[Rfam]
RNA: Guanidine-I riboswitch aptamer
Organism: Zhongshania aliphaticivorans
RNA sequence: GAAAUGGAAAGCUAGGGUUCCGAUCUCAAUGCGUUUUUUGAGAUGACUGGUCCGAGAGCUUUCGACCUUCGGCGCAUUUGGCGGCAUCGCUAAAUCACAAGGUUACACGGCGGGAUAAAAGCCCGGGAGAC
Numbered sequence: 001g002a003a004a005u006g007g008a009a010a011g012c013u014a015g016g017g018u019u020c021c022g023a024u025c026u027c028a029a030u031g032c033g034u035u036u037u038u039u040g041a042g043a044u045g046a047c048u049g050g051u052c053c054g055a056g057a058g059c060u061u062u063c064g065a066c067c068u069u070c071g072g073c074g075c076a077u078u079u080g081g082c083g084g085c086a087u088c089g090c091u092a093a094a095u096c097a098c099a100a101g102g103u104u105a106c107a108c109g110g111c112g113g114g115a116u117a118a119a120a121g122c123c124c125g126g127g128a129g130a131c
Stems, first nucleotide, its partner, number of pairs: 007063006015053002020050002022047001023044006064104006106126001108129001112124003